Rfam assigns this 279-nucleotide RNA from Molossus molossus to the family "Mason-Pfizer monkey virus packaging signal". About the family: This family represents a group of sequences that are related to the Mason-Pfizer monkey virus (MPMV) packaging signal. The packaging signal is located in the 5' UTR and is required for specific RNA encapsidation. The family's consensus secondary structure was predicted with PFOLD. Taxonomically the source falls in Molossus (Eukaryota, Vertebrata, Tetrapoda, Mammalia). A search with the family's covariance model found it, with a score of 78 bits. Rfam classes the family as a cis-regulatory element.
[Rfam]
RNA sequence: UGGUGUCCAUCGUGGGGCUCCAGCAUGGGGGAUCCAGUGAAGGAUGCCAUUCGAGUGGCCAGCAGAAAGAAAAGGAAAGGAAAAGAAAAGAGAGAACGACGUGGGAACCUGCUGCAUCUGCACCCCUCGGGUAAGUGAACGGUGAUUAUGGGUCAAGCAUUGAGCCAAGAUAAGAUGUUCAUUGAAGGACUAAAAAAAAAGCUAUUAAGGCACGAGGAGUAAAGGUAAAAAUUAAGCAUUUGUGUCAGUAUUUUGAUUAUAUUAAGAAAGUUUGUGCUU
Numbered sequence: 001u002g003g004u005g006u007c008c009a010u011c012g013u014g015g016g017g018c019u020c021c022a023g024c025a026u027g028g029g030g031g032a033u034c035c036a037g038u039g040a041a042g043g044a045u046g047c048c049a050u051u052c053g054a055g056u057g058g059c060c061a062g063c064a065g066a067a068a069g070a071a072a073a074g075g076a077a078a079g080g081a082a083a084a085g086a087a088a089a090g091a092g093a094g095a096a097c098g099a100c101g102u103g104g105g106a107a108c109c110u111g112c113u114g115c116a117u118c119u120g121c122a123c124c125c126c127u128c129g130g131g132u133a134a135g136u137g138a139a140c141g142g143u144g145a146u147u148a149u150g151g152g153u154c155a156a157g158c159a160u161u162g163a164g165c166c167a168a169g170a171u172a173a174g175a176u177g178u179u180c181a182u183u184g185a186a187g188g189a190c191u192a193a194a195a196a197a198a199a200a201g202c203u204a205u206u207a208a209g210g211c212a213c214g215a216g217g218a219g220u221a222a223a224g225g226u227a228a229a230a231a232u233u234a235a236g237c238a239u240u241u242g243u244g245u246c247a248g249u250a251u252u253u254u255g256a257u258u259a260u261a262u263u264a265a266g267a268a269a270g271u272u273u274g275u276g277c278u279u
Stems, first nucleotide, its partner, number of pairs: 006031003012026003036051004085128002092124001097120001101115004136155003140152001143150002162205001164202002213255005219249002223241004264279003268275001